[Rfam]
RNA sequence: AAUUAUCUUUGGGAUAGGUGUAAUUCCUGACCGGUGGUAAAAGUCCAUGAGCUUUUAUAAAGCAGAUUCGGUGUAAUUCCGAAACCGACGGUAUAGUAAGUCCGGAUGAGAAAAGGUGGUU
Numbered sequence: 001a002a003u004u005a006u007c008u009u010u011g012g013g014a015u016a017g018g019u020g021u022a023a024u025u026c027c028u029g030a031c032c033g034g035u036g037g038u039a040a041a042a043g044u045c046c047a048u049g050a051g052c053u054u055u056u057a058u059a060a061a062g063c064a065g066a067u068u069c070g071g072u073g074u075a076a077u078u079c080c081g082a083a084a085c086c087g088a089c090g091g092u093a094u095a096g097u098a099a100g101u102c103c104g105g106a107u108g109a110g111a112a113a114a115g116g117u118g119g120u121u
Stems, first nucleotide, its partner, number of pairs: 003119008016028003030097002032087002034048004043085002051063003067083005089104003
Notes: Shown here is a 121-nucleotide RNA sequence from Clostridium neonatale, a member of the family "FMN riboswitch aptamer (RFN element)". NCBI's taxonomy places the organism under Bacteria, Bacillota, Eubacteriales, Clostridiaceae, Clostridium.